[Rfam]
This 92-nucleotide RNA from Caenimonas koreensis belongs to the Rfam family "Glycine riboswitch aptamer". Lineage of the source: Bacteria > Betaproteobacteria > Burkholderiales > Comamonadaceae > Caenimonas koreensis. The match comes from Rfam's covariance-model search (61 bits).

RNA sequence: UCGCGCUCGUCAGGAGAGAGCUCUUCAACUGGAGCCACCGAAGGCGCAGGCACCCAGCCGAACGCUCAGGUAAAAAGGACUGACAAGGCGCU
Numbered sequence: 001u002c003g004c005g006c007u008c009g010u011c012a013g014g015a016g017a018g019a020g021c022u023c024u025u026c027a028a029c030u031g032g033a034g035c036c037a038c039c040g041a042a043g044g045c046g047c048a049g050g051c052a053c054c055c056a057g058c059c060g061a062a063c064g065c066u067c068a069g070g071u072a073a074a075a076a077g078g079a080c081u082g083a084c085a086a087g088g089c090g091c092u
Stems, first nucleotide, its partner, number of pairs: 006087002009084005020035004037071003040067002044065003050058002